RNA: hya RNA
Organism: Mycolicibacterium agri
RNA sequence: AGCGCUGCGCAAGUGGGUCGAAAGUCGACUCCUGCGGUGUAGGGGUCGCCAGCCCCGGCCCCGGGAAGCUGUGA
Numbered sequence: 001a002g003c004g005c006u007g008c009g010c011a012a013g014u015g016g017g018u019c020g021a022a023a024g025u026c027g028a029c030u031c032c033u034g035c036g037g038u039g040u041a042g043g044g045g046u047c048g049c050c051a052g053c054c055c056c057g058g059c060c061c062c063g064g065g066a067a068g069c070u071g072u073g074a
Base pairs, nucleotide, nucleotide: 003039004038005037006036007035008034042062043061044060045059046058047057
Dot-bracket structure: ..((((((.........................))))))..((((((.........))))))............